Rfam assigns this 355-nucleotide part of an RNA from Butyricicoccus porcorum to the family "Bacterial small subunit ribosomal RNA". Rfam links the family to the GO terms ribosome and structural constituent of ribosome.

RNA sequence: GGUGUAAAGGGCGAGUAGGCGGGCUGGUAAGUUGGAAGUGAAAUGUCGGGGCUUAACCCCGGAACUGCUUUCAAAACUGCUGGUCUUGAGUGAUGGAGAGGCAGGCGGAAUUCCUAGUGUAGCGGUGAAAUGCGUAGAUAUUAGGAGGAACACCAGUGGCGAAGGCGGCCUGCUGGACAUUAACUGACGCUGAGGAGCGAAAGCGUGGGGAGCAAACAGGAUUAGAUACCCUGGUAGUCCACGCCGUAAACGAUGGAUACUAGGUGUGGGAGGUAUUGACCCCUUCCGUGCCGCAGUUAACACAAUAAGUAUCCCACCUGGGGAGUACGACCGCAAGGUUGAAACUCAAAGGAAU
Numbered sequence: 001g002g003u004g005u006a007a008a009g010g011g012c013g014a015g016u017a018g019g020c021g022g023g024c025u026g027g028u029a030a031g032u033u034g035g036a037a038g039u040g041a042a043a044u045g046u047c048g049g050g051g052c053u054u055a056a057c058c059c060c061g062g063a064a065c066u067g068c069u070u071u072c073a074a075a076a077c078u079g080c081u082g083g084u085c086u087u088g089a090g091u092g093a094u095g096g097a098g099a100g101g102c103a104g105g106c107g108g109a110a111u112u113c114c115u116a117g118u119g120u121a122g123c124g125g126u127g128a129a130a131u132g133c134g135u136a137g138a139u140a141u142u143a144g145g146a147g148g149a150a151c152a153c154c155a156g157u158g159g160c161g162a163a164g165g166c167g168g169c170c171u172g173c174u175g176g177a178c179a180u181u182a183a184c185u186g187a188c189g190c191u192g193a194g195g196a197g198c199g200a201a202a203g204c205g206u207g208g209g210g211a212g213c214a215a216a217c218a219g220g221a222u223u224a225g226a227u228a229c230c231c232u233g234g235u236a237g238u239c240c241a242c243g244c245c246g247u248a249a250a251c252g253a254u255g256g257a258u259a260c261u262a263g264g265u266g267u268g269g270g271a272g273g274u275a276u277u278g279a280c281c282c283c284u285u286c287c288g289u290g291c292c293g294c295a296g297u298u299a300a301c302a303c304a305a306u307a308a309g310u311a312u313c314c315c316a317c318c319u320g321g322g323g324a325g326u327a328c329g330a331c332c333g334c335a336a337g338g339u340u341g342a343a344a345c346u347c348a349a350a351g352g353a354a355u
Base pairs, nucleotide, nucleotide: 001318002317003316009315011198012197016192018191019190020189022085023084024083025082026081027080028079030078031077032074033073034072035071036070037069038068039067040066046062047061048060049059050058051057089185090184091183092181093180094179095178100174101173102172103171104170105169106168107151111147112146113145114144115143116142117141118140122133123132124131159166160165203244204243205242206241207240208239212238213237217233218232219231220230255314256313257312258311259310260309263292264291265290266289267288268287269286270285271284272283273282296303297302320347321346322345329340330339331338332337